The record is an 87-nucleotide sequence from Pipistrellus kuhlii, which matches "mir-9195 microRNA precursor family" in Rfam.
[Rfam]
RNA sequence: AGAGGCCCUCAGCGGCCAGGGCGGAAUGCUUGCCUCAUCACAGCGGCGACAAAGCAAGCAUUCCACCUGGCCACUCACAUUGCCCUC
Numbered sequence: 001a002g003a004g005g006c007c008c009u010c011a012g013c014g015g016c017c018a019g020g021g022c023g024g025a026a027u028g029c030u031u032g033c034c035u036c037a038u039c040a041c042a043g044c045g046g047c048g049a050c051a052a053a054g055c056a057a058g059c060a061u062u063c064c065a066c067c068u069g070g071c072c073a074c075u076c077a078c079a080u081u082g083c084c085c086u087c
Stems, first nucleotide, its partner, number of pairs: 004084003012074001014072004020067002023064011038049002041046001
A search with the family's covariance model found it, with a score of 91 bits.